[Rfam]
RNA sequence: UCUGCCGAGGGGCGCUGCGACCAAUAAUGGCCAGGCUCGGCGGAGUGGAACAUCGUAACAACGGCGCCCGUUCAUU
Numbered sequence: 001u002c003u004g005c006c007g008a009g010g011g012g013c014g015c016u017g018c019g020a021c022c023a024a025u026a027a028u029g030g031c032c033a034g035g036c037u038c039g040g041c042g043g044a045g046u047g048g049a050a051c052a053u054c055g056u057a058a059c060a061a062c063g064g065c066g067c068c069c070g071u072u073c074a075u076u
Stems, first nucleotide, its partner, number of pairs: 002043007021030003
The family of this 76-nucleotide RNA from Novimethylophilus kurashikiensis is "SAH (S-adenosyl-L-homocysteine) riboswitch aptamer". The literature on the family includes a 2008 paper in Mol Cell by Wang et al., "Riboswitches that sense S-adenosylhomocysteine and activate genes involved in coenzyme recycling". Pairs were carried over by alignment from the consensus structure, which is taken from published work. NCBI's taxonomy places the organism under Bacteria, Pseudomonadati, Pseudomonadota, Methylophilaceae, Novimethylophilus. A search with the family's covariance model found it, with a score of 57 bits.